[Rfam]
RNA sequence: UGCAACGCACUAUUGCUCCCUGUAUUGCGUGUAGAUGUGUACCGGGAUCCUGAGGUGUGUGAGA
Numbered sequence: 001u002g003c004a005a006c007g008c009a010c011u012a013u014u015g016c017u018c019c020c021u022g023u024a025u026u027g028c029g030u031g032u033a034g035a036u037g038u039g040u041a042c043c044g045g046g047a048u049c050c051u052g053a054g055g056u057g058u059g060u061g062a063g064a
Stems, first nucleotide, its partner, number of pairs: 005060007018046003
Dot-bracket structure: ....(((((((......(((.......................))).......)))))))....